Actinobacteria sRNA Ms_IGR-5: a 203-nucleotide RNA sequence from Nocardioides guangzhouensis.
[Rfam]
RNA sequence: ACACGGGAAAGGAGGUGGUCCGAAGAAUGACUUCUUACAGGACGCGUGAGGUGGCUGCCCGCUAGCAGCCAGCAACCCGCGGGUGGAACCACCCGCAGCGGCUGCUGACGAAUCCACAGCAGUCACCCGACCCGCAGACGAACCGGUCUUCACGUCCACCGGUGCGGGCCCCGCGAGGGGUCCACGUCUGCGGGUCGUCGCAU
Numbered sequence: 001a002c003a004c005g006g007g008a009a010a011g012g013a014g015g016u017g018g019u020c021c022g023a024a025g026a027a028u029g030a031c032u033u034c035u036u037a038c039a040g041g042a043c044g045c046g047u048g049a050g051g052u053g054g055c056u057g058c059c060c061g062c063u064a065g066c067a068g069c070c071a072g073c074a075a076c077c078c079g080c081g082g083g084u085g086g087a088a089c090c091a092c093c094c095g096c097a098g099c100g101g102c103u104g105c106u107g108a109c110g111a112a113u114c115c116a117c118a119g120c121a122g123u124c125a126c127c128c129g130a131c132c133c134g135c136a137g138a139c140g141a142a143c144c145g146g147u148c149u150u151c152a153c154g155u156c157c158a159c160c161g162g163u164g165c166g167g168g169c170c171c172c173g174c175g176a177g178g179g180g181u182c183c184a185c186g187u188c189u190g191c192g193g194g195u196c197g198u199c200g201c202a203u
Base pairs, nucleotide, nucleotide: 014059015058016057017056018055019054060110061109063107064106065105066104068102069101070100076095128197129196130195131194132193133192134191135190136189137188138187139186140185142163143162144161145160146159147158
Taxonomically the source falls in Nocardioides (Bacteria, Actinomycetota, Actinomycetes, Propionibacteriales). The family's RNA type in Rfam is small RNA.